Annotation:
The family of this 151-nucleotide sequence from Pseudomonas fulva is "PrrF RNA".
RNA sequence: UUGACUAUGUAAUGAGAAUUGCUAUUAUUUGCAUCAGCUGAUCGCGAGAUCGGCGGAUAAGCUCAAGAGCCCUUAGGUCGGACUCUUCAGGUUAUCUCCUCAUCAGGCUAAUCACGGUUAUUGACCCGGCACUUUGCCGGGUCUUUUUUUG
Numbered sequence: 001u002u003g004a005c006u007a008u009g010u011a012a013u014g015a016g017a018a019u020u021g022c023u024a025u026u027a028u029u030u031g032c033a034u035c036a037g038c039u040g041a042u043c044g045c046g047a048g049a050u051c052g053g054c055g056g057a058u059a060a061g062c063u064c065a066a067g068a069g070c071c072c073u074u075a076g077g078u079c080g081g082a083c084u085c086u087u088c089a090g091g092u093u094a095u096c097u098c099c100u101c102a103u104c105a106g107g108c109u110a111a112u113c114a115c116g117g118u119u120a121u122u123g124a125c126c127c128g129g130c131a132c133u134u135u136g137c138c139g140g141g142u143c144u145u146u147u148u149u150u151g
Stems, first nucleotide, its partner, number of pairs: 035056001037054007062090002065087005071080001098107003123143008
Source information: Gene Ontology term of the family: sRNA-mediated gene silencing. On this family, see Wilderman et al., Proc Natl Acad Sci U S A 2004: "Identification of tandem duplicate regulatory small RNAs in Pseudomonas aeruginosa involved in iron homeostasis". Rfam describes the family as follows. PrrF RNA is a small RNA involved in iron homeostasis and is found exclusively in Pseudomonas species.